[Rfam]
RNA: Plastid-rps12 3UTR RNA
RNA sequence: GCUUCCAUUGGUGUAAAUCCAAUCAAUUCAAUUGGAGUUGAAAAGCAAUUCCCCACUGGUAGCAAUGGUUAUCCAUUAAGCGGGAAAAUCGUAUU
Numbered sequence: 001g002c003u004u005c006c007a008u009u010g011g012u013g014u015a016a017a018u019c020c021a022a023u024c025a026a027u028u029c030a031a032u033u034g035g036a037g038u039u040g041a042a043a044a045g046c047a048a049u050u051c052c053c054c055a056c057u058g059g060u061a062g063c064a065a066u067g068g069u070u071a072u073c074c075a076u077u078a079a080g081c082g083g084g085a086a087a088a089u090c091g092u093a094u095u
Stems, first nucleotide, its partner, number of pairs: 008022004052084003055076001058073006